[Rfam]
RNA sequence: GCCGUACGACAGGGGAGCACGCGCAGCGUGCUGAGAGUGCGGACCAGCCGCAGACCCUUGAACCUGCUCCGGCUAGUACCGGCGAAGGGAGUCAUGAUGAUGCUGCC
Number, nucleotide and partner (000 for none) at each position: 001g000002c000003c000004g000005u000006a095007c000008g093009a092010c091011a058012g057013g056014g055015g000016a000017g031018c030019a029020c028021g027022c000023g000024c000025a000026g000027c021028g020029u019030g018031c017032u000033g000034a000035g000036a000037g000038u052039g051040c050041g049042g048043a000044c000045c000046a000047g000048c042049c041050g040051c039052a038053g000054a000055c014056c013057c012058u011059u000060g000061a000062a000063c088064c087065u086066g000067c000068u000069c082070c081071g080072g079073c000074u000075a000076g000077u000078a000079c072080c071081g070082g069083c000084g000085a000086a065087g064088g063089g000090a000091g010092u009093c008094a000095u006096g000097a000098u000099g000100a000101u000102g000103c000104u000105g000106c000107c000
Background: The family of this 107-nucleotide sequence from Nocardioides sp. AX2bis is "TPP riboswitch aptamer (THI element)". Gene Ontology term of the family: thiamine pyrophosphate binding. The match comes from Rfam's covariance-model search (65 bits). The family's consensus secondary structure is taken from published work. The organism belongs to Nocardioides, within Bacteria.